[Rfam]
RNA sequence: AUGCACUAGAUACUAACCUGACCGUCUGCUGCCCAGUUGUUUUUAGUACUGGUGCACAUCAGUGGCUGUUGGGCUCAAAAUGGUGCUAUAGAGAUAAGCUCUGAGAUUUAAGCUCCGAGUGCGAAGUUGUUCUCUCGGGUGUUAUGACUCAGGGAUACAUCA
Numbered sequence: 001a002u003g004c005a006c007u008a009g010a011u012a013c014u015a016a017c018c019u020g021a022c023c024g025u026c027u028g029c030u031g032c033c034c035a036g037u038u039g040u041u042u043u044u045a046g047u048a049c050u051g052g053u054g055c056a057c058a059u060c061a062g063u064g065g066c067u068g069u070u071g072g073g074c075u076c077a078a079a080a081u082g083g084u085g086c087u088a089u090a091g092a093g094a095u096a097a098g099c100u101c102u103g104a105g106a107u108u109u110a111a112g113c114u115c116c117g118a119g120u121g122c123g124a125a126g127u128u129g130u131u132c133u134c135u136c137g138g139g140u141g142u143u144a145u146g147a148c149u150c151a152g153g154g155a156u157a158c159a160u161c162a
Stems, first nucleotide, its partner, number of pairs: 003086006015075001017073002020070003024066003030056003033052001035050003040045001098156001100154001117134003121130002135153002139150001141148002
RNA: Small Cajal body specific RNA 1
Organism: Astyanax mexicanus